This 95-nucleotide sequence from Rheinheimera sp. SA_1 belongs to the Rfam family "c-di-GMP-I riboswitch aptamer". The organism belongs to Rheinheimera, within Bacteria.

RNA sequence: GCCAUUGAAGGGCAAGUCAGCUGAAAAGCUGAACACGCAAAGCUUCAGGUCUACAGGUAAAUCAACAAUUUACCCACGACGGCUGAGCUACCAUC
Numbered sequence: 001g002c003c004a005u006u007g008a009a010g011g012g013c014a015a016g017u018c019a020g021c022u023g024a025a026a027a028g029c030u031g032a033a034c035a036c037g038c039a040a041a042g043c044u045u046c047a048g049g050u051c052u053a054c055a056g057g058u059a060a061a062u063c064a065a066c067a068a069u070u071u072a073c074c075c076a077c078g079a080c081g082g083c084u085g086a087g088c089u090a091c092c093a094u095c
Stems, first nucleotide, its partner, number of pairs: 012038002017032006041089004046085003049080003056074007